[Rfam]
RNA sequence: GCAAGGUGAUGUAGUAGGUUGUAUAGUUUUUGGGAUAGAGUUGCUCCAGGUAAACAACUAUACAGUUUAUUACCUUUCUUGA
Number, nucleotide and partner (000 for none) at each position: 001g000002c081003a080004a079005g078006g077007u000008g076009a075010u000011g073012u072013a071014g070015u069016a068017g067018g066019u065020u064021g063022u062023a061024u060025a059026g058027u057028u000029u000030u000031u000032g046033g045034g044035a000036u000037a000038g000039a000040g000041u000042u000043g000044c034045u033046c032047c000048a000049g000050g000051u000052a000053a000054a000055c000056a000057a027058c026059u025060a024061u023062a022063c021064a020065g019066u018067u017068u016069a015070u014071u013072a012073c011074c000075u009076u008077u006078c005079u004080u003081g002082a000